RNA sequence: UGUUUCCGCUGGGGGUGCCCGCCGACACAAGGCGCGGGCUGAGAGAGUCCCUUCGAACCUGAACGAGGUCAUGCUCGCGUAGGAAAGCUGGUGGUCUGCCAC
Numbered sequence: 001u002g003u004u005u006c007c008g009c010u011g012g013g014g015g016u017g018c019c020c021g022c023c024g025a026c027a028c029a030a031g032g033c034g035c036g037g038g039c040u041g042a043g044a045g046a047g048u049c050c051c052u053u054c055g056a057a058c059c060u061g062a063a064c065g066a067g068g069u070c071a072u073g074c075u076c077g078c079g080u081a082g083g084a085a086a087g088c089u090g091g092u093g094g095u096c097u098g099c100c101a102c
Stems, first nucleotide, its partner, number of pairs: 006090001008088003011052004016046001017039005058083004064077004